[Rfam]
RNA sequence: AGAUGCUCCAUCUAUAAAUGGAUAAGAUGUUAGUCUUAUUGUAUAAGAGUUAUUGAAAAAUAAAGGAGCAAUAACGUCCUCUUAAUAGAACAAGAAGGAAAUUAUUGCUCCUUUAUU
Numbered sequence: 001a002g003a004u005g006c007u008c009c010a011u012c013u014a015u016a017a018a019u020g021g022a023u024a025a026g027a028u029g030u031u032a033g034u035c036u037u038a039u040u041g042u043a044u045a046a047g048a049g050u051u052a053u054u055g056a057a058a059a060a061u062a063a064a065g066g067a068g069c070a071a072u073a074a075c076g077u078c079c080u081c082u083u084a085a086u087a088g089a090a091c092a093a094g095a096a097g098g099a100a101a102u103u104a105u106u107g108c109u110c111c112u113u114u115a116u117u
Base pairs, nucleotide, nucleotide: 007022008021009020010019011018062114063113064112065111066110067109068108069107070106071105072104073103074102077099080095081094082093083092
Dot-bracket structure: ......(((((......))))).......................................(((((((((((((..(..((((........))))...)..)))))))))))))...

Notes:
Plastid-psbA-1 3UTR RNA: a 117-nucleotide RNA sequence from Emmenopterys henryi. Rfam's curators put it in the seed alignment. It is annotated as a cis-regulatory element. About the family: Plastid psbA-1 is a non-coding RNA (ncRNA) present in plastids. It was identified in inverted repeat sequences in the 3 prime untranslate region (3UTR) of photosystem II quinone-binding protein (psbA). The family's consensus secondary structure was predicted with LocARNA. Its Rfam clan is "Plastid-psbA 3UTR RNA clan".